[Rfam]
RNA sequence: UUACUGGACGCUUUAGCUAUUGAACUGUUUUGUCAAAAUGACAUAACAGUUCAAUAGCUAAAGCGUCCAGUAAC
Numbered sequence: 001u002u003a004c005u006g007g008a009c010g011c012u013u014u015a016g017c018u019a020u021u022g023a024a025c026u027g028u029u030u031u032g033u034c035a036a037a038a039u040g041a042c043a044u045a046a047c048a049g050u051u052c053a054a055u056a057g058c059u060a061a062a063g064c065g066u067c068c069a070g071u072a073a074c
Stems, first nucleotide, its partner, number of pairs: 001073006011063018030036002
Rfam assigns this 74-nucleotide RNA sequence from Plutella xylostella to the family "mir-8517 microRNA precursor family". The base pairs follow the family's consensus structure, which was predicted with RNAalifold. It scores 71 bits against the family's covariance model.